[Rfam]
RNA: Mammalian CPEB3 ribozyme
Organism: Scyliorhinus torazame
RNA sequence: CUUGGCAGUAGGGGCCAUUGAAGGAGCCUUCAUGUCAAGGCCCCUGUCAGACUAUGGGUAGCCUGCGAAUCCUUUU
Numbered sequence: 001c002u003u004g005g006c007a008g009u010a011g012g013g014g015c016c017a018u019u020g021a022a023g024g025a026g027c028c029u030u031c032a033u034g035u036c037a038a039g040g041c042c043c044c045u046g047u048c049a050g051a052c053u054a055u056g057g058g059u060a061g062c063c064u065g066c067g068a069a070u071c072c073u074u075u076u
Stems, first nucleotide, its partner, number of pairs: 011044006020075006048065003052061003